[Rfam]
RNA sequence: CCUAGCUCUCACGAGCUAGGCUAAUUUAUGCCGUUCCUUCAGAACU
Number, nucleotide and partner (000 for none) at each position: 001c020002c019003u018004a017005g016006c015007u014008c013009u000010c000011a000012c000013g008014a007015g006016c005017u004018a003019g002020g001021c000022u000023a000024a000025u000026u000027u000028a000029u000030g000031c000032c000033g045034u044035u043036c042037c000038u000039u000040c000041a000042g036043a035044a034045c033046u000

Acido-Lenti-1 RNA: a 46-nucleotide RNA sequence from Lentisphaera araneosa. The family's RNA type in Rfam is small RNA. The sequence is in the family's curated seed alignment.